[Rfam]
RNA: Vault RNA
RNA sequence: GGGCCGGCUAUAGCCCAGCGGUUACUUCGGUAUGUCAUACACGUGUCGCUUCUCGCCUAGCGAGGGGUUCGAUCCCGCGGGCACCCCUGGCUCAUUU
Number, nucleotide and partner (000 for none) at each position: 001g000002g092003g091004c090005c089006g088007g087008c000009u000010a000011u000012a000013g082014c081015c080016c079017a000018g078019c077020g076021g075022u000023u000024a000025c000026u000027u072028c071029g070030g069031u000032a000033u000034g000035u000036c000037a000038u000039a000040c000041a000042c000043g000044u000045g000046u000047c000048g000049c000050u000051u000052c000053u000054c000055g000056c000057c000058u000059a000060g000061c000062g000063a000064g000065g000066g000067g000068u000069u030070c029071g028072a027073u000074c000075c021076c020077g019078c018079g016080g015081g014082c013083a000084c000085c000086c000087c007088u006089g005090g004091c003092u002093c000094a000095u000096u000097u000